[Rfam]
This 115-nucleotide sequence from Brassica napus belongs to the Rfam family "mir-172 microRNA precursor family".

RNA sequence: UUUUUUGUAGGCGCAGCACCAUCAAGAUUCACAUGGAAAUUGAAAAUUCUCCUAAUUUUUAAUUAGGGUUUUGAUAUGUAUAUGAGAAUCUUGAUGAUGCUGCAUCAACAACCGA
Numbered sequence: 001u002u003u004u005u006u007g008u009a010g011g012c013g014c015a016g017c018a019c020c021a022u023c024a025a026g027a028u029u030c031a032c033a034u035g036g037a038a039a040u041u042g043a044a045a046a047u048u049c050u051c052c053u054a055a056u057u058u059u060u061a062a063u064u065a066g067g068g069u070u071u072u073g074a075u076a077u078g079u080a081u082a083u084g085a086g087a088a089u090c091u092u093g094a095u096g097a098u099g100c101u102g103c104a105u106c107a108a109c110a111a112c113c114g115a
Stems, first nucleotide, its partner, number of pairs: 010106002013103006020096011032084002
Description:
mir-172 has been experimentally verified in Arabidopsis thaliana. A search with the family's covariance model found it, with a score of 89 bits.